[Rfam]
The family of this 77-nucleotide sequence from Vicugna pacos is "Small nucleolar RNA U2-19".
By type it is a C/D-box small nucleolar RNA.

RNA sequence: GAUCAGUGAUAAAAAUAAUGAAAUCUGAGUAUCAGAACUUCUAGUCUACCUGAUGCAUGCUCUCUGUAGUUCUGAGA
Numbered sequence: 001g002a003u004c005a006g007u008g009a010u011a012a013a014a015a016u017a018a019u020g021a022a023a024u025c026u027g028a029g030u031a032u033c034a035g036a037a038c039u040u041c042u043a044g045u046c047u048a049c050c051u052g053a054u055g056c057a058u059g060c061u062c063u064c065u066g067u068a069g070u071u072c073u074g075a076g077a
Base pairs, nucleotide, nucleotide: 029056030055031054032053033052034047035046036045